[Rfam]
RNA sequence: CCGCUGACCGCAGAAUCGUCGUCGCAGUCCAUACACACAAGGAAGACGAAGCAUUUGUGCAUCGCUCUAUCCUCUAUCCUCUACUGUGGGUGAAAGUCCCCGGAGACAUGACAGGUUUGAGCCUCUCAUCCGACUACAAGGCUUCAGGGACCCGAAUGGAGAGCACCUGCCUCUAAGCUCGGCGGGAGGGUCCAGAGCCGUGGUGGGAUGGCUGGGAAUGAUCAGGUCUGCUAUAUGCCAAUCGAUCUUUCGUAGGCUAUACUACCCCAUUUCUCCUGUCACUAGCUAGUCCGUCACUAUCGUACCGCCGCACCCUUCAGGACCUUCUCUAUCCCAAAUAUCGCUCCGACAAGUCCCAUAUGGCUAAGAUACGAGCUGCAUCGGGUGCUUGAACGGCGAUAGGAGUCGAUUCUCUUGUGGGGCGCGUGCUGGGACAAGAUGGCUGGCGAUUUUUGUUGCUCAUUACUGAAAGGCAUGCGAUUGCCGUUCUCUCUCUGCUCUAACUUUCCUCAAAGUUGGUGGGGGGAUCGGAAACUCAAUGGGGCUACUCGCGAUCAGCG
Numbered sequence: 001c002c003g004c005u006g007a008c009c010g011c012a013g014a015a016u017c018g019u020c021g022u023c024g025c026a027g028u029c030c031a032u033a034c035a036c037a038c039a040a041g042g043a044a045g046a047c048g049a050a051g052c053a054u055u056u057g058u059g060c061a062u063c064g065c066u067c068u069a070u071c072c073u074c075u076a077u078c079c080u081c082u083a084c085u086g087u088g089g090g091u092g093a094a095a096g097u098c099c100c101c102g103g104a105g106a107c108a109u110g111a112c113a114g115g116u117u118u119g120a121g122c123c124u125c126u127c128a129u130c131c132g133a134c135u136a137c138a139a140g141g142c143u144u145c146a147g148g149g150a151c152c153c154g155a156a157u158g159g160a161g162a163g164c165a166c167c168u169g170c171c172u173c174u175a176a177g178c179u180c181g182g183c184g185g186g187a188g189g190g191u192c193c194a195g196a197g198c199c200g201u202g203g204u205g206g207g208a209u210g211g212c213u214g215g216g217a218a219u220g221a222u223c224a225g226g227u228c229u230g231c232u233a234u235a236u237g238c239c240a241a242u243c244g245a246u247c248u249u250u251c252g253u254a255g256g257c258u259a260u261a262c263u264a265c266c267c268c269a270u271u272u273c274u275c276c277u278g279u280c281a282c283u284a285g286c287u288a289g290u291c292c293g294u295c296a297c298u299a300u301c302g303u304a305c306c307g308c309c310g311c312a313c314c315c316u317u318c319a320g321g322a323c324c325u326u327c328u329c330u331a332u333c334c335c336a337a338a339u340a341u342c343g344c345u346c347c348g349a350c351a352a353g354u355c356c357c358a359u360a361u362g363g364c365u366a367a368g369a370u371a372c373g374a375g376c377u378g379c380a381u382c383g384g385g386u387g388c389u390u391g392a393a394c395g396g397c398g399a400u401a402g403g404a405g406u407c408g409a410u411u412c413u414c415u416u417g418u419g420g421g422g423c424g425c426g427u428g429c430u431g432g433g434a435c436a437a438g439a440u441g442g443c444u445g446g447c448g449a450u451u452u453u454u455g456u457u458g459c460u461c462a463u464u465a466c467u468g469a470a471a472g473g474c475a476u477g478c479g480a481u482u483g484c485c486g487u488u489c490u491c492u493c494u495c496u497g498c499u500c501u502a503a504c505u506u507u508c509c510u511c512a513a514a515g516u517u518g519g520u521g522g523g524g525g526g527a528u529c530g531g532a533a534a535c536u537c538a539a540u541g542g543g544g545c546u547a548c549u550c551g552c553g554a555u556c557a558g559c560g
Stems, first nucleotide, its partner, number of pairs: 002560006009553003014482006022089007040073004045068001095546002098544004115122002337454002340450006350441002361436002364433001422429002484531003488527007
RNA: RNase MRP
Organism: Tulasnella sp. JGI-2019a